[Rfam]
RNA sequence: CACCGAAAUGGGGAUGGAGUCCCCCGAAAGCGCCGCGAUGGCUGAUGACUCCUACAACCCC
Number, nucleotide and partner (000 for none) at each position: 001c000002a000003c000004c000005g000006a000007a000008a000009u000010g025011g024012g023013g022014a000015u000016g052017g051018a050019g049020u048021c047022c013023c012024c011025c010026g000027a000028a000029a000030g000031c000032g042033c041034c040035g000036c000037g000038a000039u000040g034041g033042c032043u000044g000045a000046u000047g021048a020049c019050u018051c017052c016053u000054a000055c000056a000057a000058c000059c000060c000061c000
RNA: Fluoride riboswitch aptamer (crcB RNA motif)
Organism: Methylocystis bryophila